[Rfam]
RNA sequence: AUGCACCACGCGUCCACCUCCGUCGCUGUGCGCAGUCCACACCGCCGGACGACAGCCCGCUACGGUCUGUUGGCC
Numbered sequence: 001a002u003g004c005a006c007c008a009c010g011c012g013u014c015c016a017c018c019u020c021c022g023u024c025g026c027u028g029u030g031c032g033c034a035g036u037c038c039a040c041a042c043c044g045c046c047g048g049a050c051g052a053c054a055g056c057c058c059g060c061u062a063c064g065g066u067c068u069g070u071u072g073g074c075c
Stems, first nucleotide, its partner, number of pairs: 002016002005013002020035001022033002046073001048071004
RNA: Xanthomonas sRNA sX9
Organism: Xanthomonas oryzae